[Rfam]
Record summary
The record is a 115-nucleotide RNA sequence from Proteus penneri, which matches "tp2" in Rfam.
RNA sequence: UGUAUUCCUUAUCUGUUAUCUGUUUUUAAUGGUUAUGGGAGCCUAUCUUCCCGUUAUACCCAUCUGAUAUGACGGGAAGAUAGGCCCUGCUGUUAUUACCGCUUCCCCUGAAAAU
Dot-bracket structure: .(((...............(.((..............((.(((((((..(((((.(((.(.....).))).)))))..))))))).)))).)....)))................
The family's consensus secondary structure was predicted with RNAalifold. The sequence is in the family's curated seed alignment.